RNA sequence: GGACGAGCCUCUGGAGAGACUCCCUCUUUUUUCAAAAAGAGGAUUGGGCACCGAAGGAGCAAAUUCGCCGCGGCGAAUAAUCUCUCAGGUAAAAGGACAGAGUGGACGCU
Numbered sequence: 001g002g003a004c005g006a007g008c009c010u011c012u013g014g015a016g017a018g019a020c021u022c023c024c025u026c027u028u029u030u031u032u033c034a035a036a037a038a039g040a041g042g043a044u045u046g047g048g049c050a051c052c053g054a055a056g057g058a059g060c061a062a063a064u065u066c067g068c069c070g071c072g073g074c075g076a077a078u079a080a081u082c083u084c085u086c087a088g089g090u091a092a093a094a095g096g097a098c099a100g101a102g103u104g105g106a107c108g109c110u
Stems, first nucleotide, its partner, number of pairs: 009102005020048003050090003053086002057084003063078004